RNA sequence: UCCGCCUCUCUACCAAACACUCGUAAGUACUAUUUAUUGCGAGUGCAUGGAAGAGGCGAAUAGAGAACGGAACGUUGUCCACCCCUUCAAUCAUCAUCAAAUUGGAUUGCGGGCACUUUACCACGGUCGACAUUU
Numbered sequence: 001u002c003c004g005c006c007u008c009u010c011u012a013c014c015a016a017a018c019a020c021u022c023g024u025a026a027g028u029a030c031u032a033u034u035u036a037u038u039g040c041g042a043g044u045g046c047a048u049g050g051a052a053g054a055g056g057c058g059a060a061u062a063g064a065g066a067a068c069g070g071a072a073c074g075u076u077g078u079c080c081a082c083c084c085c086u087u088c089a090a091u092c093a094u095c096a097u098c099a100a101a102u103u104g105g106a107u108u109g110c111g112g113g114c115a116c117u118u119u120a121c122c123a124c125g126g127u128c129g130a131c132a133u134u135u
Stems, first nucleotide, its partner, number of pairs: 003058007013050003018045009070128002073125003077121002084113003088109005
About this RNA: Caenorhabditis snoRNA ceN49: a 135-nucleotide sequence from Caenorhabditis briggsae. Its family is annotated with nucleolus and RNA processing in the Gene Ontology. The organism belongs to Caenorhabditis, within Eukaryota. The sequence is in the family's curated seed alignment. Rfam 15.1 lists 11 matches to the family in 9 species. The literature on the family includes a 2007 paper in BMC Mol Biol by Jia et al., "Systematic identification of non-coding RNA 2,2,7-trimethylguanosine cap structures in Caenorhabditis elegans".